[Rfam]
RNA: ZMP/ZTP riboswitch aptamer (pfl RNA motif)
Organism: Clostridium aciditolerans
RNA sequence: AAACGAUCAUGUAACUGGCGGAAAUGGAGUUUACCAUAGGGAGCAUGAUUGAAGAAGAAUAUCGACCGCCUGGGUAAAUAUA
Numbered sequence: 001a002a003a004c005g006a007u008c009a010u011g012u013a014a015c016u017g018g019c020g021g022a023a024a025u026g027g028a029g030u031u032u033a034c035c036a037u038a039g040g041g042a043g044c045a046u047g048a049u050u051g052a053a054g055a056a057g058a059a060u061a062u063c064g065a066c067c068g069c070c071u072g073g074g075u076a077a078a079u080a081u082a
Base pairs, nucleotide, nucleotide: 004051005050006049007048008047009046010045011044012043015040016039017070018069019068020067021066024037025036026035027034060076061075062074063073